[Rfam]
RNA sequence: CGAGAUAACUUUCGUUUAGGAACUCGGCAUAUUGGCCCCGUAACUUCGGGAUAAGGGGUGCCUGUGGCAACACAGGUCGCAGUGAAAUGGCCCUCGUGACUGUUUAACAAAAACACAGGACUCUGCUGAAAUCACAAGAUGAUGUAUAGGGUCUGACGCCUGCCCGGUGCUGGAAGGUCAAGGGGAUGAGUUAACGCAAGUAAAGCUCUGAACUUAAGCCCCAGUAAACGGCGGCCGUAACUAUAACGGUCCUAAGGUAGCGAAAUUCCUUGUCGGGUAAGUUCCGACCUGCACGAAUGGCGUAACAAAGAGGGCACUGUCUCAACGAAAGACUCG
Numbered sequence: 001c002g003a004g005a006u007a008a009c010u011u012u013c014g015u016u017u018a019g020g021a022a023c024u025c026g027g028c029a030u031a032u033u034g035g036c037c038c039c040g041u042a043a044c045u046u047c048g049g050g051a052u053a054a055g056g057g058g059u060g061c062c063u064g065u066g067g068c069a070a071c072a073c074a075g076g077u078c079g080c081a082g083u084g085a086a087a088u089g090g091c092c093c094u095c096g097u098g099a100c101u102g103u104u105u106a107a108c109a110a111a112a113a114c115a116c117a118g119g120a121c122u123c124u125g126c127u128g129a130a131a132u133c134a135c136a137a138g139a140u141g142a143u144g145u146a147u148a149g150g151g152u153c154u155g156a157c158g159c160c161u162g163c164c165c166g167g168u169g170c171u172g173g174a175a176g177g178u179c180a181a182g183g184g185g186a187u188g189a190g191u192u193a194a195c196g197c198a199a200g201u202a203a204a205g206c207u208c209u210g211a212a213c214u215u216a217a218g219c220c221c222c223a224g225u226a227a228a229c230g231g232c233g234g235c236c237g238u239a240a241c242u243a244u245a246a247c248g249g250u251c252c253u254a255a256g257g258u259a260g261c262g263a264a265a266u267u268c269c270u271u272g273u274c275g276g277g278u279a280a281g282u283u284c285c286g287a288c289c290u291g292c293a294c295g296a297a298u299g300g301c302g303u304a305a306c307a308a309a310g311a312g313g314g315c316a317c318u319g320u321c322u323c324a325a326c327g328a329a330a331g332a333c334u335c336g
Stems, first nucleotide, its partner, number of pairs: 001336004009331008018322003035059005044049001060077007078082001090315006097307002101115003118154008126144001131140003157302004162232003167229002169225005176220003182214002188208004194201002233251006252256001262289001272288006
Dot-bracket structure: ((((....((((((((.(((..............(((((....(....).....)))))(((((((....)))))))(...).......((((((.((..(((.........)))..(((((((((....(((....)))...)..))))))))..((((.(((..(((((((..(((...((....((((..((....))...))))....))...))))))))..)))))((((((.......))))))(...).....(.........((((((.....))))))).........))))...))..))))))....))).)))))))).))))
Shown here is a 336-nucleotide part of an RNA from Candidatus Endomicrobiellum trichonymphae, a member of the family "Bacterial large subunit ribosomal RNA".